About this RNA:
The family of this 363-nucleotide part of an RNA from uncultured bacterium HF0770_08F21 is "Bacterial large subunit ribosomal RNA". Pairs were carried over by alignment from the consensus structure, which is taken from published work. It is one of the family's seed sequences.

RNA sequence: UGAGAGAACUCUGGUUAAGGAACUCGGCAAAUUGGCUCCGUAACUUCGGGAUAAGGAGUGCCCUCAUUAGGUGAAAGAACUUGCUUCUGGAGCUGAAGGGGGUUGCAGUGACUAGGUAGCCGCGACUGUUUACUAAAAACACAGGACUCUGCUAAGUCGUAAGACGACGUAUAGGGUCUGACGCCUGCCCGGUGCCGGAAGGUUAAAAGGAGGGGUUAACCCUUGGGUGAAGCUCCGAAUUGAAGCCCCGGUAAACGGCGGCCGUAACUAUAACGGUCCUAAGGUAGCGAAAUUCCUUGUCGGGUAAGUUCCGACCUGCACGAAUGGCGUAACGAUGGCUACACUGUCUCAACCAGGGACUCA
Numbered sequence: 001u002g003a004g005a006g007a008a009c010u011c012u013g014g015u016u017a018a019g020g021a022a023c024u025c026g027g028c029a030a031a032u033u034g035g036c037u038c039c040g041u042a043a044c045u046u047c048g049g050g051a052u053a054a055g056g057a058g059u060g061c062c063c064u065c066a067u068u069a070g071g072u073g074a075a076a077g078a079a080c081u082u083g084c085u086u087c088u089g090g091a092g093c094u095g096a097a098g099g100g101g102g103u104u105g106c107a108g109u110g111a112c113u114a115g116g117u118a119g120c121c122g123c124g125a126c127u128g129u130u131u132a133c134u135a136a137a138a139a140c141a142c143a144g145g146a147c148u149c150u151g152c153u154a155a156g157u158c159g160u161a162a163g164a165c166g167a168c169g170u171a172u173a174g175g176g177u178c179u180g181a182c183g184c185c186u187g188c189c190c191g192g193u194g195c196c197g198g199a200a201g202g203u204u205a206a207a208a209g210g211a212g213g214g215g216u217u218a219a220c221c222c223u224u225g226g227g228u229g230a231a232g233c234u235c236c237g238a239a240u241u242g243a244a245g246c247c248c249c250g251g252u253a254a255a256c257g258g259c260g261g262c263c264g265u266a267a268c269u270a271u272a273a274c275g276g277u278c279c280u281a282a283g284g285u286a287g288c289g290a291a292a293u294u295c296c297u298u299g300u301c302g303g304g305u306a307a308g309u310u311c312c313g314a315c316c317u318g319c320a321c322g323a324a325u326g327g328c329g330u331a332a333c334g335a336u337g338g339c340u341a342c343a344c345u346g347u348c349u350c351a352a353c354c355a356g357g358g359a360c361u362c363a
Base pairs, nucleotide, nucleotide: 001363002362003361004360009358010357011356012355013354014353015352016351018349019348020347035059036058037057038056039055044049060103061102062101063100064099065098068083069082070081071080072079104108116342117341118340119339120338121337122336123334124333127141128140129139144179145178146177147176148175149174150173151172152169156165157164158163182329183328184327185326187259188258189257192256193255194252195251196250197249198248201247202246203245207241208240212236213235214234215233216232219228220227260278261277262276263275264274265273279283289316299315300314301313302312303311304310